Rfam assigns this 339-nucleotide RNA from Gemmiger sp. An120 to the family "Bacterial RNase P class A". NCBI's taxonomy places the organism under Bacteria, Bacillati, Bacillota, Eubacteriales, Gemmiger. Rfam links the family to the GO terms tRNA processing, dimeric ribonuclease P complex and ribonuclease P activity.

RNA sequence: CGAGUGGAACAUACGGUGGCGGGGCGCUUUUGCGCUCUGAGGAAAGUCCGGGCUUCACAGGGGCAUGGUAACUGCUAACGGCAGCCGGGGGCGACCCUAGGGAUAGUGCAACAGAAAUAGACCGCCCCGCCUUCGGGCGGAGCAAGGAUGGAAAGGCGAGGUAAGAGCUCACCAGCGCACUGGCGACUUUGCGGCUAUGUAAACCCUACCAGAAGCAACACCCGUAUGGGACAUAUGCGCUGCCCCGCGCGUCCCGGAGGUGGCACGAGCGAUGCGGCAACGCACCGCCUAGACAGAUCACCGUUUAAUACAGAACCCGGCUUACGGUCCGGUCGUUUC
Numbered sequence: 001c002g003a004g005u006g007g008a009a010c011a012u013a014c015g016g017u018g019g020c021g022g023g024g025c026g027c028u029u030u031u032g033c034g035c036u037c038u039g040a041g042g043a044a045a046g047u048c049c050g051g052g053c054u055u056c057a058c059a060g061g062g063g064c065a066u067g068g069u070a071a072c073u074g075c076u077a078a079c080g081g082c083a084g085c086c087g088g089g090g091g092c093g094a095c096c097c098u099a100g101g102g103a104u105a106g107u108g109c110a111a112c113a114g115a116a117a118u119a120g121a122c123c124g125c126c127c128c129g130c131c132u133u134c135g136g137g138c139g140g141a142g143c144a145a146g147g148a149u150g151g152a153a154a155g156g157c158g159a160g161g162u163a164a165g166a167g168c169u170c171a172c173c174a175g176c177g178c179a180c181u182g183g184c185g186a187c188u189u190u191g192c193g194g195c196u197a198u199g200u201a202a203a204c205c206c207u208a209c210c211a212g213a214a215g216c217a218a219c220a221c222c223c224g225u226a227u228g229g230g231a232c233a234u235a236u237g238c239g240c241u242g243c244c245c246c247g248c249g250c251g252u253c254c255c256g257g258a259g260g261u262g263g264c265a266c267g268a269g270c271g272a273u274g275c276g277g278c279a280a281c282g283c284a285c286c287g288c289c290u291a292g293a294c295a296g297a298u299c300a301c302c303g304u305u306u307a308a309u310a311c312a313g314a315a316c317c318c319g320g321c322u323u324a325c326g327g328u329c330c331g332g333u334c335g336u337u338u339c
Stems, first nucleotide, its partner, number of pairs: 001335003005331004010326001013304006020039008044323003048320005053215004061245004066211005072084004086100001087098004101206002106204002108200003122147002124143002127140005155173002158170003175195001176193004182187001219262004228255004236251005269288003273284004
Dot-bracket structure: (((.((((.(..((((((.((((((((....))))))))....[[[.[[[[[((((....[[[[.(((((.((((.....)))).(((((....)))).)((...(((((...........((((.(((((....))))).))..)).......((.(((.......))).)).(((((..(....)..)))).)..)))..)))))))))))))...((((.....((((....(((((.]]]].)))))))))...))))......(((.((((....)))).)))..........))))))...........]]]]]]]]..).)))).)))....